[Rfam]
Rfam assigns this 104-nucleotide RNA sequence from Xenopus tropicalis to the family "Small nucleolar RNA SNORD46". The literature on the family includes a 2003 paper in Nucleic Acids Res by Chen et al., "The high diversity of snoRNAs in plants: identification and comparative study of 120 snoRNA genes from Oryza sativa". By type it is a C/D-box small nucleolar RNA. It scores 54 bits against the family's covariance model. Its Rfam clan is "SNORD46 clan". Rfam's curators write: U40 is a C/D box small nucleolar RNA, also known as snoZ153 in plants. The human sequence has also been annotated in the sequence databases as U46.
Nucleotides: 104
Stems, first nucleotide, its partner, number of pairs: 001104005
Number, partner (000 for none) and nucleotide at each position: 001104a002103a003102u004101c005100u006000g007000u008000g009000a010000u011000g012000a013000a014000a015000a016000g017000c018000u019000g020000u021000c022000c023000u024000u025000a026000g027000g028000c029000a030000u031000g032000c033000a034000g035000u036000u037000c038000a039000g040000g041000c042000u043000g044000u045000u046000u047000u048000g049000g050000c051000c052000c053000u054000u055000g056000u057000u058000u059000u060000u061000g062000c063000u064000g065000c066000c067000u068000g069000c070000c071000a072000g073000u074000g075000a076000u077000a078000g079000g080000c081000c082000u083000g084000u085000c086000a087000u088000a089000g090000u091000u092000a093000c094000a095000c096000u097000g098000a099000u100005g101004g102003a103002u104001u